[Rfam]
RNA sequence: CCAGUCGUACCCGAUGUUCCACAGGAGAGGUCCUAGGACAGACCCCUGCGGAACACCGCACGACAUG
Numbered sequence: 001c002c003a004g005u006c007g008u009a010c011c012c013g014a015u016g017u018u019c020c021a022c023a024g025g026a027g028a029g030g031u032c033c034u035a036g037g038a039c040a041g042a043c044c045c046c047u048g049c050g051g052a053a054c055a056c057c058g059c060a061c062g063a064c065a066u067g
Base pairs, nucleotide, nucleotide: 004064005063006062007061008060011058013056015055016054017053018052019051020050024049026047027046029045030044033041034040
mir-3389 microRNA precursor family: a 67-nucleotide RNA from Arctia plantaginis.